[Rfam]
RNA sequence: GAGAACGGAUAAUCCGAUAAGUGGAAUGAAGGGGUAACGCCCGGAAACGCUUCCCUAAUACUCCGAUAUGCGUAGAUAAUUGCAAUCACAUUUACGUGUAAAGCUCGGUGAAGUCGGCAGAGAGCGACCCAAACAGAGAAACAAUUAUGUUUCGGAUGUGGAAAUCCGUCCAGCGGUGGAUGGUGUCGCCUAUAUGCCGGGGGUCUAUAAA
Numbered sequence: 001g002a003g004a005a006c007g008g009a010u011a012a013u014c015c016g017a018u019a020a021g022u023g024g025a026a027u028g029a030a031g032g033g034g035u036a037a038c039g040c041c042c043g044g045a046a047a048c049g050c051u052u053c054c055c056u057a058a059u060a061c062u063c064c065g066a067u068a069u070g071c072g073u074a075g076a077u078a079a080u081u082g083c084a085a086u087c088a089c090a091u092u093u094a095c096g097u098g099u100a101a102a103g104c105u106c107g108g109u110g111a112a113g114u115c116g117g118c119a120g121a122g123a124g125c126g127a128c129c130c131a132a133a134c135a136g137a138g139a140a141a142c143a144a145u146u147a148u149g150u151u152u153c154g155g156a157u158g159u160g161g162a163a164a165u166c167c168g169u170c171c172a173g174c175g176g177u178g179g180a181u182g183g184u185g186u187c188g189c190c191u192a193u194a195u196g197c198c199g200g201g202g203g204u205c206u207a208u209a210a211a
Base pairs, nucleotide, nucleotide: 019052020051021050022049023048032042033041034040053203054202055201056200063108064107065106066105067100068099069098070097071096072095073094074093075092076091077090115199116198117197118196119195124189125188126187127186128185129161130160131159136157166183167182168181169180170179171178172177